[Rfam]
RNA sequence: ACGUACUUAAGCUGGUGCAUCCGUAUUUGCGCCAAAAUUUGUACCGAAUUUUUUGAACUCGUUACGCCGCUAUUUAUUACAGAAUGAAUUUAAAGCGUAAUUUUUUCACAC
Numbered sequence: 001a002c003g004u005a006c007u008u009a010a011g012c013u014g015g016u017g018c019a020u021c022c023g024u025a026u027u028u029g030c031g032c033c034a035a036a037a038u039u040u041g042u043a044c045c046g047a048a049u050u051u052u053u054u055g056a057a058c059u060c061g062u063u064a065c066g067c068c069g070c071u072a073u074u075u076a077u078u079a080c081a082g083a084a085u086g087a088a089u090u091u092a093a094a095g096c097g098u099a100a101u102u103u104u105u106u107c108a109c110a111c
Base pairs, nucleotide, nucleotide: 003044004043005042006041013034014033015032016031017030018029019028054108055107056106057105061101062100063099064098065097066096067095072089073088074087075086076085077084078083